[Rfam]
RNA sequence: UUAGUUUUGGAGUGCGUGUCAGUUGCGCAUUUACAUGAAAUACAUAAAUAACACAUGAAAUUUGCAAGCUGUAAAUGCACAUUCUGAUACGCAUUUAGAAACU
Numbered sequence: 001u002u003a004g005u006u007u008u009g010g011a012g013u014g015c016g017u018g019u020c021a022g023u024u025g026c027g028c029a030u031u032u033a034c035a036u037g038a039a040a041u042a043c044a045u046a047a048a049u050a051a052c053a054c055a056u057g058a059a060a061u062u063u064g065c066a067a068g069c070u071g072u073a074a075a076u077g078c079a080c081a082u083u084c085u086g087a088u089a090c091g092c093a094u095u096u097a098g099a100a101a102c103u
Stems, first nucleotide, its partner, number of pairs: 008097004015091008025080001027078009